[Rfam]
RNA sequence: UAUCAAGGGCAGCAGGUGAAUGCCUUGGCGACAUCAGGCGAAGAAGGACGUGGCAAGCUGCGAUAAGCCUCGGGGAGCGGCAAACACGCUUUGAUCCGGGGAUUUCCGAAUGGGGGAACCCGGCUGGCUGAAAGCCAGUCAGCUUAAACUGAAUUCAUAGGUUUAAGUAGCGACACCCGCUGAAGUGAAACAUCUCAGUAAGCGGAGGAAAGGAAAGCGAAAGCGAUUCCCUGUGUAGUGGCGAACGAAAGGGGAAUAGCCCAAACCAGCAAGAUUUAUCUUACUGGGGUUGUAGGACUCCAAUGUGGGAUCAUGAAGGAUAGGAGAAGCUUUUGGAAAGAAGCACCAUAGAAAGUGACAGUCUUGUAUCCGAAAUCUAGAGUGACCCUAGGAUGUUCCUGAGUAGCACGAGACACGUGAAACCUCGUGUGAAUCUACGCAGACCACUGCGUAAGGCUAAAUACUCGGUGUCGACCGAUAGUGAACUAGUACCGUGAGGGAAAGGUGAAAAGUACCCCUGCUAGGGGAGUGAAAUAGUACCUGAAACCUGCUGCCUACAAG
Number, nucleotide and partner (000 for none) at each position: 001u000002a000003u000004c000005a000006a000007g556008g555009g554010c553011a552012g551013c550014a549015g548016g547017u000018g000019a000020a000021u000022g541023c505024c504025u000026u000027g476028g475029c473030g472031a471032c470033a469034u468035c467036a465037g464038g171039c170040g000041a000042a000043g000044a000045a000046g107047g106048a105049c062050g061051u060052g000053g000054c000055a000056a000057g000058c000059u000060g051061c050062g049063a000064u000065a000066a000067g000068c101069c100070u099071c098072g097073g096074g095075g000076a000077g089078c088079g087080g000081c000082a000083a000084a000085c000086a000087c079088g078089c077090u000091u000092u000093g000094a000095u074096c073097c072098g071099g070100g069101g068102a000103u000104u000105u048106c047107c046108g000109a000110a000111u000112g121113g120114g119115g000116g000117a000118a000119c114120c113121c112122g140123g139124c138125u137126g136127g135128c134129u000130g000131a000132a000133a000134g128135c127136c126137a125138g124139u123140c122141a000142g168143c167144u166145u165146a164147a163148a162149c161150u160151g000152a000153a000154u000155u000156c000157a000158u000159a000160g150161g149162u148163u147164u146165a145166a144167g143168u142169a000170g039171c038172g000173a000174c000175a000176c207177c205178c204179g203180c202181u201182g000183a000184a000185g000186u000187g194188a193189a000190a000191c000192a000193u188194c187195u000196c000197a000198g000199u000200a000201a181202g180203c179204g178205g177206a000207g176208g000209a000210a000211a000212g000213g000214a000215a000216a000217g224218c223219g000220a000221a000222a000223g218224c217225g000226a000227u461228u255229c254230c253231c252232u251233g000234u000235g000236u000237a000238g246239u245240g000241g000242c000243g000244a000245a239246c238247g000248a000249a000250a000251g232252g231253g230254g229255a228256a000257u000258a458259g457260c456261c455262c000263a000264a000265a000266c287267c286268a285269g284270c000271a282272a281273g000274a000275u000276u000277u000278a000279u000280c000281u272282u271283a000284c269285u268286g267287g266288g000289g000290u000291u000292g000293u000294a400295g399296g398297a000298c000299u393300c392301c391302a000303a000304u000305g000306u000307g000308g000309g387310a000311u385312c384313a383314u382315g000316a000317a000318g378319g377320a376321u375322a000323g371324g370325a369326g000327a000328a000329g344330c343331u342332u341333u340334u000335g000336g000337a000338a000339a000340g333341a332342a331343g330344c329345a000346c000347c351348a000349u000350a000351g347352a000353a365354a364355g363356u000357g000358a000359c000360a000361g000362u000363c355364u354365u353366g000367u000368a000369u325370c324371c323372g000373a000374a000375a321376u320377c319378u318379a000380g000381a000382g314383u313384g312385a311386c000387c309388c000389u000390a000391g301392g300393a299394u000395g000396u000397u000398c296399c295400u294401g000402a000403g000404u000405a000406g430407c429408a428409c427410g426411a425412g424413a000414c000415a000416c000417g000418u000419g000420a000421a000422a000423c000424c412425u411426c410427g409428u408429g407430u406431g000432a000433a000434u000435c000436u000437a452438c451439g450440c449441a448442g000443a000444c000445c000446a000447c000448u441449g440450c439451g438452u437453a000454a000455g261456g260457c259458u258459a000460a000461a227462u000463a000464c037465u036466c000467g035468g034469u033470g032471u031472c030473g029474a000475c028476c027477g000478a000479u000480a000481g000482u000483g000484a000485a000486c000487u000488a000489g000490u000491a000492c499493c498494g000495u000496g000497a000498g493499g492500g000501a000502a000503a000504g024505g023506u000507g000508a000509a000510a000511a000512g000513u000514a000515c527516c526517c525518c524519u000520g000521c000522u000523a000524g518525g517526g516527g515528a000529g000530u000531g000532a000533a000534a000535u000536a000537g000538u000539a000540c000541c022542u000543g000544a000545a000546a000547c016548c015549u014550g013551c012552u011553g010554c009555c008556u007557a000558c000559a000560a000561g000

A member of the RNA family "Bacterial large subunit ribosomal RNA" from Opitutia bacterium SCGC AG-212-L18, 561 nucleotides of a longer RNA. Lineage of the source: Bacteria > Pseudomonadati > Verrucomicrobiota > Opitutia. Clan: LSU clan.